The record is a 133-nucleotide sequence from Cavia porcellus, which matches "Small nucleolar RNA SNORA1" in Rfam. The organism belongs to Cavia, within Eukaryota. The family's consensus secondary structure was predicted with PFOLD. Rfam describes the family as follows. ACA1 is a member of the H/ACA class of snoRNA that guide the sites of modification of uridines to pseudouridines. The family's RNA type in Rfam is H/ACA-box small nucleolar RNA. The match comes from Rfam's covariance-model search (97 bits).
RNA sequence: AGCCUCAUUCCAGAUUAGAAUGAGCACAGUUGAUUGGUGUCCAGGACUGGUCAGGGUGGCUGAAACUGGGAUGCAGGUCACACUUCCAUCACAGUAAACAUUUAUAGUGGUGACGGUGAAACCUGUGACAUUU
Numbered sequence: 001a002g003c004c005u006c007a008u009u010c011c012a013g014a015u016u017a018g019a020a021u022g023a024g025c026a027c028a029g030u031u032g033a034u035u036g037g038u039g040u041c042c043a044g045g046a047c048u049g050g051u052c053a054g055g056g057u058g059g060c061u062g063a064a065a066c067u068g069g070g071a072u073g074c075a076g077g078u079c080a081c082a083c084u085u086c087c088a089u090c091a092c093a094g095u096a097a098a099c100a101u102u103u104a105u106a107g108u109g110g111u112g113a114c115g116g117u118g119a120a121a122c123c124u125g126u127g128a129c130a131u132u133u
Stems, first nucleotide, its partner, number of pairs: 002060003006056001008054001021043002024040004073126005087112006